[Rfam]
RNA sequence: CUGCUUUGUUUGUGUUUUGCGCCUAUGAAUUGCUUGGAGUUCAUGGGCCUUGUGAGCAAGUGAAGCAAGAAAAACAUGGCUCCCCUCGCUAUCCAGUGCAGAUUUACUUUGUUGCAUUUGGACGUUGGGGAGCUAUAUGU
Numbered sequence: 001c002u003g004c005u006u007u008g009u010u011u012g013u014g015u016u017u018u019g020c021g022c023c024u025a026u027g028a029a030u031u032g033c034u035u036g037g038a039g040u041u042c043a044u045g046g047g048c049c050u051u052g053u054g055a056g057c058a059a060g061u062g063a064a065g066c067a068a069g070a071a072a073a074a075c076a077u078g079g080c081u082c083c084c085c086u087c088g089c090u091a092u093c094c095a096g097u098g099c100a101g102a103u104u105u106a107c108u109u110u111g112u113u114g115c116a117u118u119u120g121g122a123c124g125u126u127g128g129g130g131a132g133c134u135a136u137a138u139g140u
Stems, first nucleotide, its partner, number of pairs: 001069002003066003008061006016054001019050001021048009079133007087124002092122005100112001102110001
Small nucleolar RNA snoR136: a 140-nucleotide sequence from Phoenix dactylifera. The family's consensus secondary structure was predicted with mfold. The family has 8 seed sequences and 452 matches in Rfam 15.1. The organism belongs to Phoenix, within Eukaryota. A search with the family's covariance model found it, with a score of 71 bits. Gene Ontology terms of the family: nucleolus and RNA processing.